A member of the RNA family "Bacterial small subunit ribosomal RNA" from Spiroplasma eriocheiris, 580 nucleotides of a longer RNA.
Its family is annotated with ribosome and structural constituent of ribosome in the Gene Ontology.
The family is grouped with related families in Rfam's "SSU clan".
Pairs were carried over by alignment from the consensus structure, which is taken from published work.
RNA sequence: UGACGGGGACCCGCACAAGCGGUGGAGCAUGUGGUUUAAUUCGAAGCAACGCGAAGAACCUUACCAAGGCUUGACAUCCAGUGCAAAGCUGUAGAGAUACAGUAGAGGUUAACAUUGAGACAGGUGGUGCAUGGUUGUCGUCAGCUCGUGCCGUGAGGUGUUUGGUUAAGUCCAGUAACGAGCGCAACCCUUGUCGUUAGUUACUCCAUUAAGUUGAGAUACUCUAACGAGACUGCUAGUGUAAGCUAGAGGAAGGUGGGGAUGACGUCAAAUCAUCAUGCCCCUUAUGUCUUGGGCUACACACGUGCUACAAUGGCCGGUACAAACAGUUGCGAUCUCGCAAGAGGGAGCUAAUCUGAAAAAGCCGGUCUCAGUUCGGAUUGAGGGCUGCAACUCGCCCUCAUGAAGUCGGAAUCGCUAGUAAUCGCGGAUCAGCAAUGCCGCGGUGAAUACGUUCUCGGGUCUUGUACACACCGCCCGUCACACCAUGAGAGUUGGUAAUGCCAGAAGUCGGUAUCCUAACCGCAAGGAGGGAGCUGCCCAAGGCAGGACUGAUGAUUAGGGUGAAGUCGUAACAAGG
Numbered sequence: 001u002g003a004c005g006g007g008g009a010c011c012c013g014c015a016c017a018a019g020c021g022g023u024g025g026a027g028c029a030u031g032u033g034g035u036u037u038a039a040u041u042c043g044a045a046g047c048a049a050c051g052c053g054a055a056g057a058a059c060c061u062u063a064c065c066a067a068g069g070c071u072u073g074a075c076a077u078c079c080a081g082u083g084c085a086a087a088g089c090u091g092u093a094g095a096g097a098u099a100c101a102g103u104a105g106a107g108g109u110u111a112a113c114a115u116u117g118a119g120a121c122a123g124g125u126g127g128u129g130c131a132u133g134g135u136u137g138u139c140g141u142c143a144g145c146u147c148g149u150g151c152c153g154u155g156a157g158g159u160g161u162u163u164g165g166u167u168a169a170g171u172c173c174a175g176u177a178a179c180g181a182g183c184g185c186a187a188c189c190c191u192u193g194u195c196g197u198u199a200g201u202u203a204c205u206c207c208a209u210u211a212a213g214u215u216g217a218g219a220u221a222c223u224c225u226a227a228c229g230a231g232a233c234u235g236c237u238a239g240u241g242u243a244a245g246c247u248a249g250a251g252g253a254a255g256g257u258g259g260g261g262a263u264g265a266c267g268u269c270a271a272a273u274c275a276u277c278a279u280g281c282c283c284c285u286u287a288u289g290u291c292u293u294g295g296g297c298u299a300c301a302c303a304c305g306u307g308c309u310a311c312a313a314u315g316g317c318c319g320g321u322a323c324a325a326a327c328a329g330u331u332g333c334g335a336u337c338u339c340g341c342a343a344g345a346g347g348g349a350g351c352u353a354a355u356c357u358g359a360a361a362a363a364g365c366c367g368g369u370c371u372c373a374g375u376u377c378g379g380a381u382u383g384a385g386g387g388c389u390g391c392a393a394c395u396c397g398c399c400c401u402c403a404u405g406a407a408g409u410c411g412g413a414a415u416c417g418c419u420a421g422u423a424a425u426c427g428c429g430g431a432u433c434a435g436c437a438a439u440g441c442c443g444c445g446g447u448g449a450a451u452a453c454g455u456u457c458u459c460g461g462g463u464c465u466u467g468u469a470c471a472c473a474c475c476g477c478c479c480g481u482c483a484c485a486c487c488a489u490g491a492g493a494g495u496u497g498g499u500a501a502u503g504c505c506a507g508a509a510g511u512c513g514g515u516a517u518c519c520u521a522a523c524c525g526c527a528a529g530g531a532g533g534g535a536g537c538u539g540c541c542c543a544a545g546g547c548a549g550g551a552c553u554g555a556u557g558a559u560u561a562g563g564g565u566g567a568a569g570u571c572g573u574a575a576c577a578a579g580g
Stems, first nucleotide, its partner, number of pairs: 001471002003468003007465007015455002019418005024311001026309008034300002040055004064295007077120002079117005088103006123284002126282004132278002134273003137269001139267002144183006150159003162175004189261004194230007205218001207216002233252002236249005315370007327358003332351002337346003377408001382403007424447007474579001476576001479572002484566004489561003494556006502548004510541001512539004517535004523530002